[Rfam]
RNA sequence: CGGUGGGACACCCUUCCCCAACGAAGGGCAUCUAUCUGGAAGGUUAGCUCAG
Numbered sequence: 001c002g003g004u005g006g007g008a009c010a011c012c013c014u015u016c017c018c019c020a021a022c023g024a025a026g027g028g029c030a031u032c033u034a035u036c037u038g039g040a041a042g043g044u045u046a047g048c049u050c051a052g
Stems, first nucleotide, its partner, number of pairs: 011028006032047003036043002
RNA: serC leader